[Rfam]
RNA: MIR828 microRNA precursor family
Organism: Turnera subulata
RNA sequence: GUAAUGUUUCUUGCUCAAAUGAGUAUUCCAACAGCAGUUUCCUCUUUAACCCAGUGGAAUCUGAGUUCCUUACUUUUUUUGUCAAGGUUUUGGUUCAUUCGCUGCUAGCUUGUGCAACUGUCUCUGCGAUGCUCAUUUGGGCAAGCAAUGUUAG
Numbered sequence: 001g002u003a004a005u006g007u008u009u010c011u012u013g014c015u016c017a018a019a020u021g022a023g024u025a026u027u028c029c030a031a032c033a034g035c036a037g038u039u040u041c042c043u044c045u046u047u048a049a050c051c052c053a054g055u056g057g058a059a060u061c062u063g064a065g066u067u068c069c070u071u072a073c074u075u076u077u078u079u080u081g082u083c084a085a086g087g088u089u090u091u092g093g094u095u096c097a098u099u100c101g102c103u104g105c106u107a108g109c110u111u112g113u114g115c116a117a118c119u120g121u122c123u124c125u126g127c128g129a130u131g132c133u134c135a136u137u138u139g140g141g142c143a144a145g146c147a148a149u150g151u152u153a154g
Stems, first nucleotide, its partner, number of pairs: 004151005010145018029126002